[Rfam]
RNA sequence: CGCAAAGCCGGCGUCAAUGCGCCGGCGGGAAUGACAACUAAUAGACCAAUUUGACCGUUGAAGCGCCGUGCUGGGCGGCGAACGGUGACGCGACACUUCGCGUCGUGAGCUGGAUCGAGGGCAGUGAACACACUCAAAACGACUUGGCCCCGCAGCCAAUGUGGGACGGAUUCUAGCAGGCUUUUAUAGAUCGUCAAUGAUACAAAAACUCAAACCCAUAACAAAAUGUAA
Numbered sequence: 001c002g003c004a005a006a007g008c009c010g011g012c013g014u015c016a017a018u019g020c021g022c023c024g025g026c027g028g029g030a031a032u033g034a035c036a037a038c039u040a041a042u043a044g045a046c047c048a049a050u051u052u053g054a055c056c057g058u059u060g061a062a063g064c065g066c067c068g069u070g071c072u073g074g075g076c077g078g079c080g081a082a083c084g085g086u087g088a089c090g091c092g093a094c095a096c097u098u099c100g101c102g103u104c105g106u107g108a109g110c111u112g113g114a115u116c117g118a119g120g121g122c123a124g125u126g127a128a129c130a131c132a133c134u135c136a137a138a139a140c141g142a143c144u145u146g147g148c149c150c151c152g153c154a155g156c157c158a159a160u161g162u163g164g165g166a167c168g169g170a171u172u173c174u175a176g177c178a179g180g181c182u183u184u185u186a187u188a189g190a191u192c193g194u195c196a197a198u199g200a201u202a203c204a205a206a207a208a209c210u211c212a213a214a215c216c217c218a219u220a221a222c223a224a225a226a227u228g229u230a231a
Base pairs, nucleotide, nucleotide: 008025009024010023011022012021013020014019056126057125058124059123064080065079066078067077068076087104088103089102090101091100092099093098160199161198162197166194167193168192169191172190173189174188175187